[Rfam]
RNA: SAM/SAH riboswitch aptamer
Organism: Sulfitobacter aestuariivivens
RNA sequence: AGCGUGUCACAACGGCUUCCUGACGUGACACUUUGAUUUUUCAAUUGGAGCA
Numbered sequence: 001a002g003c004g005u006g007u008c009a010c011a012a013c014g015g016c017u018u019c020c021u022g023a024c025g026u027g028a029c030a031c032u033u034u035g036a037u038u039u040u041u042c043a044a045u046u047g048g049a050g051c052a
Stems, first nucleotide, its partner, number of pairs: 004031007013022002015051003019048002